Annotation
Shown here is a 398-nucleotide RNA sequence from Aquimarina intermedia, a member of the family "transfer-messenger RNA". The family's RNA type in Rfam is non-coding RNA gene. About the family: Bacterial tmRNA, also known as 10Sa RNA or SsrA, is named for its dual tRNA and mRNA-like properties. Its role is to liberate the mRNA from a stalled ribosome. To accomplish this part of the tmRNA is used as a reading frame that ends in a translation stop signal. Pairs were carried over by alignment from the consensus structure, which is taken from published work. Taxonomically the source falls in Aquimarina (Bacteria, Bacteroidota, Flavobacteriia, Flavobacteriaceae). For this family Rfam cites "tmRDB (tmRNA database)" (Zwieb et al., Nucleic Acids Res, 2003).
RNA sequence: GGGGUCGACUGGUUUUGACAGCGAGACUAAUGAGAUGGUAAGCACGUCGAGCGCUGGGAUAUAGCUCGUAAAUAUCAUAUUUCAUCUUUUUUAAACGGCGAGAAUAACUACGCCCUAGCUGCAUAAUCUGAAUUUCAGUAGGAUAAUGCCUCGGUCUACAAGGUAGACAAGCAGGAUACUCUUCAAAAGCCUUGGUUUAUGGCGUUUGGUUUUGAGUAUCGUAAAAGUAAACCUAGAAACCAAAGGGUCUUGAUUUGGUUUUGAAAUUAAUUGAGAAUAAGCUGUGCGUUGGUGGUUUUUGACCGGCAAGCAGACGAAAACCUAAACAGAAACUAAGCGUGUAGAAAGCUAUUUGAUUACUUGUUUGGACGAGGGUUCGAAUCCCUCCGACUCCACGA
Numbered sequence: 001g002g003g004g005u006c007g008a009c010u011g012g013u014u015u016u017g018a019c020a021g022c023g024a025g026a027c028u029a030a031u032g033a034g035a036u037g038g039u040a041a042g043c044a045c046g047u048c049g050a051g052c053g054c055u056g057g058g059a060u061a062u063a064g065c066u067c068g069u070a071a072a073u074a075u076c077a078u079a080u081u082u083c084a085u086c087u088u089u090u091u092u093a094a095a096c097g098g099c100g101a102g103a104a105u106a107a108c109u110a111c112g113c114c115c116u117a118g119c120u121g122c123a124u125a126a127u128c129u130g131a132a133u134u135u136c137a138g139u140a141g142g143a144u145a146a147u148g149c150c151u152c153g154g155u156c157u158a159c160a161a162g163g164u165a166g167a168c169a170a171g172c173a174g175g176a177u178a179c180u181c182u183u184c185a186a187a188a189g190c191c192u193u194g195g196u197u198u199a200u201g202g203c204g205u206u207u208g209g210u211u212u213u214g215a216g217u218a219u220c221g222u223a224a225a226a227g228u229a230a231a232c233c234u235a236g237a238a239a240c241c242a243a244a245g246g247g248u249c250u251u252g253a254u255u256u257g258g259u260u261u262u263g264a265a266a267u268u269a270a271u272u273g274a275g276a277a278u279a280a281g282c283u284g285u286g287c288g289u290u291g292g293u294g295g296u297u298u299u300u301g302a303c304c305g306g307c308a309a310g311c312a313g314a315c316g317a318a319a320a321c322c323u324a325a326a327c328a329g330a331a332a333c334u335a336a337g338c339g340u341g342u343a344g345a346a347a348g349c350u351a352u353u354u355g356a357u358u359a360c361u362u363g364u365u366u367g368g369a370c371g372a373g374g375g376u377u378c379g380a381a382u383c384c385c386u387c388c389g390a391c392u393c394c395a396c397g398a
Stems, first nucleotide, its partner, number of pairs: 001394007019367003022363004030357002033354007043341005048068005055084007123147002126144003177218005184208004189203003195232006236262009246278001248276004282313004288307002291304003295333004300326001371387005